This 136-nucleotide RNA sequence from Trichonephila clavata belongs to the Rfam family "Wolbachia sRNA 46". A search with the family's covariance model found it, with a score of 92 bits. By type it is a small RNA. The organism belongs to Trichonephila, within Eukaryota. Pairs were carried over by alignment from the consensus structure.
RNA sequence: UUUGCCUCAAACACAAAGGUGUCAUCCCAGUGCCCAGACACUGGGAUCCAGAAAAAUUGUAAACAAACGCACUAUACAACAUAAAAGCUGGAUCCCAGUGUCAGCUACUCGGAUGACACCAUUUAUUGUAAGGACU
Numbered sequence: 001u002u003u004g005c006c007u008c009a010a011a012c013a014c015a016a017a018g019g020u021g022u023c024a025u026c027c028c029a030g031u032g033c034c035c036a037g038a039c040a041c042u043g044g045g046a047u048c049c050a051g052a053a054a055a056a057u058u059g060u061a062a063a064c065a066a067a068c069g070c071a072c073u074a075u076a077c078a079a080c081a082u083a084a085a086a087g088c089u090g091g092a093u094c095c096c097a098g099u100g101u102c103a104g105c106u107a108c109u110c111g112g113a114u115g116a117c118a119c120c121a122u123u124u125a126u127u128g129u130a131a132g133g134a135c136u
Base pairs, nucleotide, nucleotide: 013129014128015127020118021117022116023115024114025113026112027111029109030108031107032106034104037102038101039100040099041098042097043096044095045094046093047092048091049090050089051088